[Rfam]
This 84-nucleotide RNA sequence from Clostridium magnum belongs to the Rfam family "pan motif".

RNA sequence: UGGGUAGUAUCCUGUCGGAGCUGCACCGAGUUGUUUAUUAUUUUUAUAAAUAUUCUGCUCAUAUCUAUUAGAAUGAGACAACUU
Numbered sequence: 001u002g003g004g005u006a007g008u009a010u011c012c013u014g015u016c017g018g019a020g021c022u023g024c025a026c027c028g029a030g031u032u033g034u035u036u037a038u039u040a041u042u043u044u045u046a047u048a049a050a051u052a053u054u055c056u057g058c059u060c061a062u063a064u065c066u067a068u069u070a071g072a073a074u075g076a077g078a079c080a081a082c083u084u
Stems, first nucleotide, its partner, number of pairs: 001028003004024005010019002056080002058077005064072003
The family's consensus secondary structure is taken from published work.